[Rfam]
RNA sequence: GCCAGGUACGUGGAUGCUGAAGGUCAGAGGGAAGUGCUUUUGUUUCGAUGUUUGUUCUCUAGUCCUCUGACCUUCCUGCAUUCCGUUCGUCUCUAGGA
Dot-bracket structure: .(((((((((.((((((.((((((((((((..((.((...(((....)))...)).)).....))))))))))))..)))))))))..))))...)).